The family of this 81-nucleotide RNA from Olea europaea is "Small nucleolar RNA R38". From the family's description: snoR38 is a C/D box small nucleolar RNA conserved across yeast, human, Arabidopsis and rice. It is encoded in the intron of elongation factor-1 gamma in both pombe and cerevisiae. snoR38 guides the methylation of 2'-O-ribose sites in 28S rRNA. Its family is annotated with RNA processing and nucleolus in the Gene Ontology. The family's RNA type in Rfam is C/D-box small nucleolar RNA. On this family, see Chen et al., Nucleic Acids Res 2003: "The high diversity of snoRNAs in plants: identification and comparative study of 120 snoRNA genes from Oryza sativa".
RNA sequence: GUUUAUGAAUGAUGAGAACAAAUAAUUCACAGUUAUCCCUGUCUGAUAAUUUCUGAUGAAAGCUUGUAAUCUGACAUUAAA
Numbered sequence: 001g002u003u004u005a006u007g008a009a010u011g012a013u014g015a016g017a018a019c020a021a022a023u024a025a026u027u028c029a030c031a032g033u034u035a036u037c038c039c040u041g042u043c044u045g046a047u048a049a050u051u052u053c054u055g056a057u058g059a060a061a062g063c064u065u066g067u068a069a070u071c072u073g074a075c076a077u078u079a080a081a
Stems, first nucleotide, its partner, number of pairs: 002080002005077003